Shown here is a 35-nucleotide RNA, a member of the family "DUF805b RNA". By type it is a cis-regulatory element. The family's consensus secondary structure is taken from published work. The sequence is in the family's curated seed alignment.

[Rfam]
RNA sequence: UUGGAGCAAGCCGAAAAUCCUGAAAAGAGUAGGCA
Numbered sequence: 001u002u003g004g005a006g007c008a009a010g011c012c013g014a015a016a017a018u019c020c021u022g023a024a025a026a027g028a029g030u031a032g033g034c035a
Base pairs, nucleotide, nucleotide: 003020004019005018010034011033012032